[Rfam]
RNA sequence: GGUUUGUAGGCAGAGUAGUUAGCUGAUUGUGUCCAUCUCUUUGCAGUCACUAACUUUACUGCCAUCAAAAC
Numbered sequence: 001g002g003u004u005u006g007u008a009g010g011c012a013g014a015g016u017a018g019u020u021a022g023c024u025g026a027u028u029g030u031g032u033c034c035a036u037c038u039c040u041u042u043g044c045a046g047u048c049a050c051u052a053a054c055u056u057u058a059c060u061g062c063c064a065u066c067a068a069a070a071c
Stems, first nucleotide, its partner, number of pairs: 003069004009063002012060002015057001017055006024049008